mir-199 microRNA precursor family: a 79-nucleotide RNA sequence from Bagarius yarrelli. A search with the family's covariance model found it, with a score of 80 bits. Rfam's curators write: This family consists of the microRNA (miRNA) precursor mir-199 which appears to be specific to humans. Animal miRNAs are transcribed as ~70nt precursors and subsequently processed by the Dicer enzyme to give a ~22nt product. In this case the mature sequence comes from the 3' arm of the precursor. Lineage of the source: Eukaryota > Teleostomi > Otomorpha > Otophysi > Bagarius. For this family Rfam cites "miRNPs: a novel class of ribonucleoproteins containing numerous microRNAs" (Mourelatos et al., Genes Dev, 2002). Its family is annotated with RISC complex and miRNA-mediated post-transcriptional gene silencing in the Gene Ontology.
[Rfam]
RNA sequence: CCUCCGUCUGCCCAGUGUUCAGACUACAUGUUCAGGAUAUAUGAGUGUACAGUAGUCUGCACAUUGGUUAGACGGGCGA
Number, nucleotide and partner (000 for none) at each position: 001c000002c000003u000004c000005c000006g000007u000008c000009u000010g000011c000012c067013c066014a065015g064016u063017g062018u061019u000020c059021a058022g057023a056024c055025u054026a053027c000028a000029u051030g050031u049032u000033c047034a046035g000036g000037a000038u000039a000040u000041a000042u000043g000044a000045g000046u034047g033048u000049a031050c030051a029052g000053u026054a025055g024056u023057c022058u021059g020060c000061a018062c017063a016064u015065u014066g013067g012068u000069u000070a000071g000072a000073c000074g000075g000076g000077c000078g000079a000